[Rfam]
RNA: mir-483 microRNA precursor family
Organism: Rousettus aegyptiacus
RNA sequence: GAGGGGGAGGGCGGGAGGGGAGGAGGGCGUGGUUUGUGCAGGUCCUCACUCCUCCCCUCCCGUCUUCUCCUUCC
Dot-bracket structure: ...(((((((((((((((...(.((((.(((...............)))))))).)))))))))))))))....